Nucleotides: 061
Stems, first nucleotide, its partner, number of pairs: 003022002006019001008017003035060003043052003
Number, partner (000 for none) and nucleotide at each position: 001000a002000a003022u004021u005000c006019u007000g008017u009016u010015c011000a012000u013000a014000a015010g016009a017008a018000g019006a020000a021004a022003g023000a024000g025000a026000a027000g028000c029000a030000c031000u032000a033000u034000a035060c036059u037058c038000g039000a040000u041000a042000a043052g044051u045050g046000c047000c048000a049000a050045u051044a052043u053000g054000c055000a056000a057000u058037g059036g060035g061000u